Notes: The family of this 171-nucleotide RNA sequence from Radiobacillus deserti is "glmS glucosamine-6-phosphate activated ribozyme aptamer". It is annotated as a riboswitch. Rfam's curators write: This entry contains a glucosamine-6-phosphate activated ribozyme that is found in the mRNA for GlmS. GlmS is an enzyme that uses fructose-6-phosphate and glutamine to generate glucosamine-6-phosphate. The ribozyme catalyses self cleavage of the glmS mRNA that is thought to regulate GlmS activity.
RNA sequence: AGUAACUAAAAAGCGCCUGAACUAUAUUCCGUUCGGUGGAAUACAGUUGACGAGGUGGAGGUUUAUCGAGAAAUUCGGCGGAUGCCUCCCGGUUGCACACAUCUCAACCGUUACGUUUUUAUUCGAAAACAAAGAGGCGACUCUUUCGACAGGAAUAAAAGCACUAGGUGU
Numbered sequence: 001a002g003u004a005a006c007u008a009a010a011a012a013g014c015g016c017c018u019g020a021a022c023u024a025u026a027u028u029c030c031g032u033u034c035g036g037u038g039g040a041a042u043a044c045a046g047u048u049g050a051c052g053a054g055g056u057g058g059a060g061g062u063u064u065a066u067c068g069a070g071a072a073a074u075u076c077g078g079c080g081g082a083u084g085c086c087u088c089c090c091g092g093u094u095g096c097a098c099a100c101a102u103c104u105c106a107a108c109c110g111u112u113a114c115g116u117u118u119u120u121a122u123u124c125g126a127a128a129a130c131a132a133a134g135a136g137g138c139g140a141c142u143c144u145u146u147c148g149a150c151a152g153g154a155a156u157a158a159a160a161g162c163a164c165u166a167g168g169u170g171u
Stems, first nucleotide, its partner, number of pairs: 020048004025043003029039001057089005066078004090110006116161007131146006
Dot-bracket structure: ...................((((.(((.(.........).))).))))........(((((....((((.....))))......)))))((((((.........)))))).....(((((((........((((((....))))))........)))))))..........